The record is a 94-nucleotide RNA from Aureimonas sp. Leaf460, which matches "Glycine riboswitch aptamer" in Rfam.
The source organism's lineage runs through Bacteria, Pseudomonadati, Pseudomonadota, Aurantimonadaceae and Aureimonas.
Rfam's curators write: This family represents the bacterial glycine riboswitch.
The match comes from Rfam's covariance-model search (43 bits).
RNA sequence: UCCGGAGAGUGACGGCCGAGUGGUCGUCCGCCGAAGGAGAAAGCGGGACGAGGGAAUGAUCCCUGGCCCGUGAAGCUCUCAGGCUCGUGACGGA
Numbered sequence: 001u002c003c004g005g006a007g008a009g010u011g012a013c014g015g016c017c018g019a020g021u022g023g024u025c026g027u028c029c030g031c032c033g034a035a036g037g038a039g040a041a042a043g044c045g046g047g048a049c050g051a052g053g054g055a056a057u058g059a060u061c062c063c064u065g066g067c068c069c070g071u072g073a074a075g076c077u078c079u080c081a082g083g084c085u086c087g088u089g090a091c092g093g094a
Stems, first nucleotide, its partner, number of pairs: 001094004011028006030084003033080002037078003043071005